[Rfam]
RNA sequence: UUGAUAUGAUGAUACCUUGAGAAUGGUUUCGCAUACUGGACUGAUGUCUUGUGAUGUCAUGUUUCUCUUGGCUAUCUGAUCAA
Numbered sequence: 001u002u003g004a005u006a007u008g009a010u011g012a013u014a015c016c017u018u019g020a021g022a023a024u025g026g027u028u029u030c031g032c033a034u035a036c037u038g039g040a041c042u043g044a045u046g047u048c049u050u051g052u053g054a055u056g057u058c059a060u061g062u063u064u065c066u067c068u069u070g071g072c073u074a075u076c077u078g079a080u081c082a083a
Stems, first nucleotide, its partner, number of pairs: 001083004
Small nucleolar RNA SNORD53/SNORD92: an 83-nucleotide sequence from Scleropages formosus. Rfam links the family to the GO terms RNA processing and nucleolus. NCBI's taxonomy places the organism under Eukaryota, Craniata, Vertebrata, Gnathostomata, Scleropages. Clan: SNORD52 clan. For this family Rfam cites "Site-specific ribose methylation of preribosomal RNA: a novel function for small nucleolar RNAs" (Kiss-Laszlo et al., Cell, 1996). The base pairs follow the family's consensus structure. By type it is a C/D-box small nucleolar RNA.